[Rfam]
RNA sequence: GUCACGGCUUAUAACGUUCCUUGCUUCCAUGGGCCGCGGCUGCCCCUUACAGGAGGCUGAAUAAUCCGUAAGGAGCAAUUUUAAUG
Number, nucleotide and partner (000 for none) at each position: 001g000002u000003c000004a000005c000006g000007g000008c000009u000010u000011a000012u000013a000014a000015c000016g076017u075018u074019c073020c072021u071022u070023g057024c056025u055026u054027c053028c052029a000030u000031g046032g045033g044034c000035c000036g000037c000038g000039g000040c000041u000042g000043c000044c033045c032046c031047u000048u000049a000050c000051a000052g028053g027054a026055g025056g024057c023058u000059g000060a000061a000062u000063a000064a000065u000066c000067c000068g000069u000070a022071a021072g020073g019074a018075g017076c016077a000078a000079u000080u000081u000082u000083a000084a000085u000086g000